[Rfam]
RNA: RAGATH-17 RNA
Nucleotides: 096
Stems, first nucleotide, its partner, number of pairs: 001016006048069006057087004
Number, partner (000 for none) and nucleotide at each position: 001016g002015a003014u004013g005012g006011c007000g008000a009000g010000a011006g012005c013004c014003a015002u016001c017000g018000g019000u020000a021000g022000u023000a024000u025000a026000g027000c028000g029000a030000a031000a032000a033000u034000c035000a036000u037000a038000a039000a040000u041000g042000a043000g044000a045000a046000g047000a048069g049068c050067u051066c052065u053064a054000a055000a056000u057087g058086c059085c060084u061000a062000a063000g064053u065052a066051g067050a068049g069048u070000u071000a072000a073000a074000a075000u076000a077000a078000u079000u080000a081000g082000a083000c084060a085059g086058g087057c088000a089000c090000u091000a092000c093000u094000a095000c096000a